A member of the RNA family "RT-18 RNA", 75 nucleotides long. Rfam's curators put it in the seed alignment.

RNA sequence: CACCACUUGGUGAAGAUUUUGCCGUCGGGAACGGUUUAGUAGGUAUUUCUCGAAAGACCGUCAGGCGAAAAGGAG
Numbered sequence: 001c002a003c004c005a006c007u008u009g010g011u012g013a014a015g016a017u018u019u020u021g022c023c024g025u026c027g028g029g030a031a032c033g034g035u036u037u038a039g040u041a042g043g044u045a046u047u048u049c050u051c052g053a054a055a056g057a058c059c060g061u062c063a064g065g066c067g068a069a070a071a072g073g074a075g
Base pairs, nucleotide, nucleotide: 001012002011003010004009020067021066022065023064031061032060033059034058035057036056042051043050
Dot-bracket structure: ((((....)))).......((((.......((((((.....((......))....))))))..))))........